Shown here is a 133-nucleotide sequence from Erinaceus europaeus, a member of the family "Small nucleolar RNA SNORA84". Lineage of the source: Eukaryota > Vertebrata > Teleostomi > Sarcopterygii > Erinaceus. By type it is an H/ACA-box small nucleolar RNA.
Nucleotides: 133
Stems, first nucleotide, its partner, number of pairs: 001058004007050002010047005017040001019037002023033001069125001071123002075119002080115002082112004087107001089105005
Number, partner (000 for none) and nucleotide at each position: 001058g002057c003056c004055c005000u006000g007050u008049a009000a010047u011046u012045a013044c014043u015000a016000a017040a018000u019037g020036u021000g022000u023033u024000u025000g026000u027000a028000g029000a030000a031000g032000u033023g034000c035000a036020g037019c038000u039000c040017u041000c042000c043014a044013g045012u046011g047010g048000a049008u050007a051000u052000a053000a054000a055004g056003g057002g058001c059000u060000a061000g062000a063000g064000c065000a066000a067000u068000u069125c070000u071123g072122u073000u074000c075119u076118u077000u078000a079000u080115g081114c082112a083111u084110g085109g086000g087107g088000a089105c090104u091103g092102u093101u094000u095000c096000u097000c098000u099000u100000c101093a102092a103091c104090a105089g106000c107087c108000u109085c110084c111083a112082u113000a114081g115080c116000c117000c118076a119075g120000u121000c122072a123071c124000u125069g126000a127000u128000a129000c130000a131000u132000g133000a

On this family, see Marker et al., Curr Biol 2002: "Experimental RNomics: identification of 140 candidates for small non-messenger RNAs in the plant Arabidopsis thaliana".